[Rfam]
RNA sequence: AUAUUAGAUAGAGGCGCAAGUAGUAAGAGUAGUGUGUUGGAGAGUAAGCAAACUCUUUGAAGAUACAUGAAAGGGAUACUUGCCGAAGUUGUUGUGUAUUGCUUUAUACAACAAACUGGUUUUGCAUUGAAUAAGUGUAAGACUGUCGAAAUAGUAUUUCGUUGAGCUAUCCAGUGU
Numbered sequence: 001a002u003a004u005u006a007g008a009u010a011g012a013g014g015c016g017c018a019a020g021u022a023g024u025a026a027g028a029g030u031a032g033u034g035u036g037u038u039g040g041a042g043a044g045u046a047a048g049c050a051a052a053c054u055c056u057u058u059g060a061a062g063a064u065a066c067a068u069g070a071a072a073g074g075g076a077u078a079c080u081u082g083c084c085g086a087a088g089u090u091g092u093u094g095u096g097u098a099u100u101g102c103u104u105u106a107u108a109c110a111a112c113a114a115a116c117u118g119g120u121u122u123u124g125c126a127u128u129g130a131a132u133a134a135g136u137g138u139a140a141g142a143c144u145g146u147c148g149a150a151a152u153a154g155u156a157u158u159u160c161g162u163u164g165a166g167c168u169a170u171c172c173a174g175u176g177u
Base pairs, nucleotide, nucleotide: 007171008170009169010168011167016083017082018081019080020079021078022077024075032068033067034066035065036064037063038062087117088116089115090113091112092111093110094109095108096107097106118144119143120142121141122140123139124138125137126136127135128134147161148160149159150158151157152156